[Rfam]
RNA sequence: CCUAGUAGUGCCAAAGUGCUCAUAGUGCAGGUAGUUUUUAUACCACUCUACUGCAGUGUGAGCACUUCUAGUACUCCUGG
Numbered sequence: 001c002c003u004a005g006u007a008g009u010g011c012c013a014a015a016g017u018g019c020u021c022a023u024a025g026u027g028c029a030g031g032u033a034g035u036u037u038u039u040a041u042a043c044c045a046c047u048c049u050a051c052u053g054c055a056g057u058g059u060g061a062g063c064a065c066u067u068c069u070a071g072u073a074c075u076c077c078u079g080g
Stems, first nucleotide, its partner, number of pairs: 005077001007075002010072002014067011026055003030052005
This 80-nucleotide RNA sequence from Mus musculus belongs to the Rfam family "mir-17 microRNA precursor family".
Pairs were carried over by alignment from the consensus structure, which was predicted with RNAalifold.
About the family: This family represents the microRNA (miRNA) precursor mir-17, family, which includes mir-20, mir-91, and mir-103. miRNAs are transcribed as ~70nt precursors (modelled here) and subsequently processed by the Dicer enzyme to give a ~22nt product.
The sequence is in the family's curated seed alignment.
For this family Rfam cites "Identification of novel genes coding for small expressed RNAs" (Lagos-Quintana et al., Science, 2001).